[Rfam]
RNA sequence: CGGGUGUGAGUAUUACAUCAGGUACUGGUGGAUUGUAACAAUCAGUGCUUGUGUUAUACUUGCACUCA
Number, nucleotide and partner (000 for none) at each position: 001c000002g067003g066004g065005u064006g063007u000008g000009a060010g059011u058012a057013u000014u000015a054016c053017a052018u051019c000020a000021g049022g048023u047024a046025c045026u044027g043028g042029u041030g000031g000032a000033u000034u000035g000036u000037a000038a000039c000040a000041a029042u028043c027044a026045g025046u024047g023048c022049u021050u000051g018052u017053g016054u015055u000056a000057u012058a011059c010060u009061u000062g000063c006064a005065c004066u003067c002068a000